[Rfam]
RNA sequence: UGAUCAGUCAGGCUGCUGGUUAUAUUCCAGGACUUCUCUGGUCCUGGAUAUAACCAAAGCCCGACUGUUAA
Numbered sequence: 001u002g003a004u005c006a007g008u009c010a011g012g013c014u015g016c017u018g019g020u021u022a023u024a025u026u027c028c029a030g031g032a033c034u035u036c037u038c039u040g041g042u043c044c045u046g047g048a049u050a051u052a053a054c055c056a057a058a059g060c061c062c063g064a065c066u067g068u069u070a071a
Stems, first nucleotide, its partner, number of pairs: 007065003011061004017056008027041005